[Rfam]
RNA sequence: UACCCUGUGGUUCGUAACCCUCCCACAUAAAAAAACUAGGAAAUC
Numbered sequence: 001u002a003c004c005c006u007g008u009g010g011u012u013c014g015u016a017a018c019c020c021u022c023c024c025a026c027a028u029a030a031a032a033a034a035a036c037u038a039g040g041a042a043a044u045c
Base pairs, nucleotide, nucleotide: 006027007026008025009024010023015038016037
PreQ1 (pre queuosine) riboswitch aptamer: a 45-nucleotide RNA sequence from Snodgrassella alvi. This family is a bacterial riboswitch that binds to the metabolite preQ1, an intermediate in the biosynthesis of the modified nucleoside queuosine from GTP. One example of this riboswitch is located in the leader of the Bacillus subtilis ykvJKLM (queCDEF) operon which encodes four genes necessary for queuosine production. PreQ1 binding to the riboswitch aptamer is thought to induce premature transcription termination within the leader to down-regulate expression of these genes. Lineage of the source: Bacteria > Pseudomonadota > Neisseriales > Neisseriaceae > Snodgrassella. A reference for the family is Schroeder et al. (2023), "A riboswitch separated from its ribosome-binding site still regulates translation", Nucleic Acids Res. Its family is annotated with queuosine biosynthetic process in the Gene Ontology. Pairs were carried over by alignment from the consensus structure. The family has 43 seed sequences and 873 matches in Rfam 15.1.